[Rfam]
RNA sequence: UCCAUCGUGAGGUGGAAUCUGAAGGAAGCCUAAGGCAAAGUCUCGGUCUGAGGGAUACGAACUACAUAUAAGGCUUACUAGGAACGGACGAGUUUGCAAAACAAAACGAAGUCCAACACUAUCCGAAUUUCUAGGAGUAAAUGUAGCAGAUAUAUGAGAUGAAGGUUGUUGUU
Numbered sequence: 001u002c003c004a005u006c007g008u009g010a011g012g013u014g015g016a017a018u019c020u021g022a023a024g025g026a027a028g029c030c031u032a033a034g035g036c037a038a039a040g041u042c043u044c045g046g047u048c049u050g051a052g053g054g055a056u057a058c059g060a061a062c063u064a065c066a067u068a069u070a071a072g073g074c075u076u077a078c079u080a081g082g083a084a085c086g087g088a089c090g091a092g093u094u095u096g097c098a099a100a101a102c103a104a105a106a107c108g109a110a111g112u113c114c115a116a117c118a119c120u121a122u123c124c125g126a127a128u129u130u131c132u133a134g135g136a137g138u139a140a141a142u143g144u145a146g147c148a149g150a151u152a153u154a155u156g157a158g159a160u161g162a163a164g165g166u167u168g169u170u171g172u173u
Stems, first nucleotide, its partner, number of pairs: 001016006028173001030171001032169001035166002040160006046151005062146006073138003078134007086114004092107004
The record is a 173-nucleotide RNA from Clostridium manihotivorum, which matches "Group II catalytic intron D1-D4-3" in Rfam. It scores 152 bits against the family's covariance model. Pairs were carried over by alignment from the consensus structure. Rfam describes the family as follows. Group II introns are found in rRNA, tRNA and mRNA of organelles in fungi, plants and protists, and also in mRNA in bacteria. NCBI's taxonomy places the organism under Bacteria, Bacillota, Eubacteriales, Clostridiaceae, Clostridium.